[Rfam]
Description:
A member of the RNA family "Small nucleolar RNA SNORA31" from Mesocricetus auratus, 127 nucleotides long. The match comes from Rfam's covariance-model search (83 bits). Pairs were carried over by alignment from the consensus structure, which was predicted with RNAalifold.
RNA sequence: CUGCAUCCACUGACAGACCUUAGAUAAUUCGUGACUGCUCUUCUGGUUUGCACUAGGAUAUAAAAGAACAUGCUCCCUGUGCUUUCUGCCUGUCUUUGUGGUCAAGACUGAAGUGAGAAGUACAUCU
Number, nucleotide and partner (000 for none) at each position: 001c000002u062003g061004c000005a059006u058007c057008c056009a000010c000011u052012g051013a000014c050015a049016g048017a047018c046019c045020u000021u000022a000023g039024a000025u037026a036027a000028u034029u000030c000031g000032u000033g000034a028035c000036u026037g025038c000039u023040c000041u000042u000043c000044u000045g019046g018047u017048u016049u015050g014051c012052a011053c000054u000055a000056g008057g007058a006059u005060a000061u003062a002063a000064a000065a000066g000067a000068a000069c000070a000071u000072g000073c000074u119075c000076c117077c000078u115079g114080u000081g000082c110083u000084u000085u107086c106087u105088g000089c000090c101091u000092g000093u000094c100095u000096u000097u000098g000099u000100g094101g090102u000103c000104a000105a087106g086107a085108c000109u000110g082111a000112a000113g000114u079115g078116a000117g076118a000119a074120g000121u000122a000123c000124a000125u000126c000127u000